[Rfam]
RNA sequence: AGUUCAAACAUGCCGAGUUCCAUGAACAUGGAAACGGGGGAACCAUCUAUAGGGUGAAUUGAUUUCGCCCUCCUCGCCGCAAGGCAGGAAGGCCGGAGAAAUCAUAGGGAACCUUCAACCGAACCCCACAGCUAACCUCGUAGGCUCUGGAAGGAGCACCA
Number, nucleotide and partner (000 for none) at each position: 001a000002g000003u000004u000005c000006a000007a000008a000009c000010a000011u000012g145013c144014c143015g000016a000017g000018u033019u032020c031021c030022a029023u000024g000025a000026a000027c000028a000029u022030g021031g020032a019033a018034a141035c140036g139037g138038g137039g136040g000041a000042a000043c000044c000045a050046u000047c000048u000049a000050u045051a000052g126053g125054g124055u000056g000057a000058a000059u000060u104061g103062a102063u101064u100065u099066c098067g000068c000069c000070c000071u000072c000073c000074u000075c000076g000077c000078c000079g000080c000081a000082a000083g000084g000085c000086a000087g000088g000089a000090a000091g000092g000093c000094c000095g000096g000097a000098g066099a065100a064101a063102u062103c061104a060105u000106a000107g120108g119109g000110a000111a000112c000113c000114u000115u000116c000117a000118a000119c108120c107121g000122a000123a000124c054125c053126c052127c000128a000129c000130a000131g000132c000133u000134a000135a000136c039137c038138u037139c036140g035141u034142a000143g014144g013145c012146u000147c000148u000149g000150g000151a000152a000153g000154g000155a000156g000157c000158a000159c000160c000161a000
RNA: c-di-AMP riboswitch aptamer (ydaO/yuaA leader)
Organism: Paenibacillus albicereus